[Rfam]
Nucleotides: 057
Stems, first nucleotide, its partner, number of pairs: 011051002014048003028045006
Number, partner (000 for none) and nucleotide at each position: 001000c002000g003000c004000a005000g006000g007000c008000a009000c010000a011051c012050c013000a014048c015047c016046a017000c018000a019000a020000c021000g022000g023000a024000u025000c026000g027000u028045c029044c030043g031042g032041c033040a034000c035000g036000u037000a038000c039000c040033u041032g042031c043030c044029g045028g046016u047015g048014g049000a050012g051011g052000g053000a054000u055000g056000u057000a